[Rfam]
RNA sequence: GGUUGCAAAUUUGAAGCCAUAGCACAAGCAAUCAUGGCCUGUCAGAUUCCAAUGAAUCUGUGAAUUCUGCU
Numbered sequence: 001g002g003u004u005g006c007a008a009a010u011u012u013g014a015a016g017c018c019a020u021a022g023c024a025c026a027a028g029c030a031a032u033c034a035u036g037g038c039c040u041g042u043c044a045g046a047u048u049c050c051a052a053u054g055a056a057u058c059u060g061u062g063a064a065u066u067c068u069g070c071u
Stems, first nucleotide, its partner, number of pairs: 013039001016038003021071004026066002028035001043060007
Dot-bracket structure: ............[..[[[..((((.(((......)]]]]...(((((((....)))))))....)).))))
RNA: Mammalian CPEB3 ribozyme
Organism: Alligator mississippiensis